[Rfam]
Nucleotides: 128
Base pairs, nucleotide, nucleotide: 011026012025013024014023015022016021028058029057030056036051037050038049039047040046096115097114098113099112100111101110102109103108
Number, partner (000 for none) and nucleotide at each position: 001000g002000a003000g004000g005000a006000a007000a008000a009000g010000a011026a012025g013024a014023a015022g016021c017000a018000c019000c020000c021016g022015c023014u024013u025012c026011u027000c028058a029057c030056c031000u032000g033000a034000u035000u036051g037050a038049c039047g040046c041000a042000a043000u044000g045000a046040g047039c048000a049038g050037u051036u052000g053000g054000c055000a056030g057029g058028u059000u060000u061000u062000a063000c064000g065000u066000g067000a068000a069000c070000a071000u072000u073000u074000u075000u076000u077000g078000u079000u080000u081000a082000u083000u084000u085000u086000g087000u088000c089000c090000g091000u092000a093000a094000a095000g096115u097114g098113u099112g100111g101110g102109u103108g104000u105000u106000a107000g108103c109102a110101u111100c112099c113098a114097c115096a116000c117000u118000u119000u120000u121000u122000u123000u124000a125000u126000u127000g128000g
A member of the RNA family "Ribosomal protein L20 leader" from Cytobacillus dafuensis, 128 nucleotides long.
A reference for the family is Zengel and Lindahl (1994), "Diverse mechanisms for regulating ribosomal protein synthesis in Escherichia coli", Prog Nucleic Acid Res Mol Biol.
The match comes from Rfam's covariance-model search (89 bits).
Lineage of the source: Bacteria > Bacillati > Bacillota > Bacillaceae > Cytobacillus.